[Rfam]
RNA: transfer-messenger RNA
RNA sequence: GGGGUAGUACAGGUUUCGACAGGGGUUGUGCAAUUAUGGAAGCCAUUCGUCUGUGCCACGUUACGACACAAAAAUAAAUAUAAACGCUGAAGAUAAUUUAGCUUACGCUGCCUAAUAGCGGCAGCUGUCUAACCUAAGGCACCUACACUUUAGAAUUAGGCAUCAAAUUUUGUAGGACACUAGCUUAUCAAAGCUUUGAGAUAAGUUAAGUAAUAUGAAGCUACUAAGGUAAGAAUCCUGUCAUUAGGAGUUUUACUAAGGGAAUGUUAAAAUAAUGACUGUAAUGGGAGAAGCUAUAAUGAAUCGGCUUUUGGACGCGAGUUCGACUCUCGCCUACUCCAUUG
Numbered sequence: 001g002g003g004g005u006a007g008u009a010c011a012g013g014u015u016u017c018g019a020c021a022g023g024g025g026u027u028g029u030g031c032a033a034u035u036a037u038g039g040a041a042g043c044c045a046u047u048c049g050u051c052u053g054u055g056c057c058a059c060g061u062u063a064c065g066a067c068a069c070a071a072a073a074a075u076a077a078a079u080a081u082a083a084a085c086g087c088u089g090a091a092g093a094u095a096a097u098u099u100a101g102c103u104u105a106c107g108c109u110g111c112c113u114a115a116u117a118g119c120g121g122c123a124g125c126u127g128u129c130u131a132a133c134c135u136a137a138g139g140c141a142c143c144u145a146c147a148c149u150u151u152a153g154a155a156u157u158a159g160g161c162a163u164c165a166a167a168u169u170u171u172g173u174a175g176g177a178c179a180c181u182a183g184c185u186u187a188u189c190a191a192a193g194c195u196u197u198g199a200g201a202u203a204a205g206u207u208a209a210g211u212a213a214u215a216u217g218a219a220g221c222u223a224c225u226a227a228g229g230u231a232a233g234a235a236u237c238c239u240g241u242c243a244u245u246a247g248g249a250g251u252u253u254u255a256c257u258a259a260g261g262g263a264a265u266g267u268u269a270a271a272a273u274a275a276u277g278a279c280u281g282u283a284a285u286g287g288g289a290g291a292a293g294c295u296a297u298a299a300u301g302a303a304u305c306g307g308c309u310u311u312u313g314g315a316c317g318c319g320a321g322u323u324c325g326a327c328u329c330u331c332g333c334c335u336a337c338u339c340c341a342u343u344g
Base pairs, nucleotide, nucleotide: 001340002339003338004337005336006335007334020313021312022311023310024309025308026307027306028305033300034299035298036297037296038295039294043287044286045285046284047283048060049059050058053069054068055067107122108121109120110119111118126162127161128160129159130158131157134153135152137150138149139148142176143175144174145173146172147171181208182207183206184205185204186203187202188201189200192222193221194220195219196218197217224261225260228257229256230255231254232253233252236249237248238247240279241278242277243276245272317333318332319331320330321329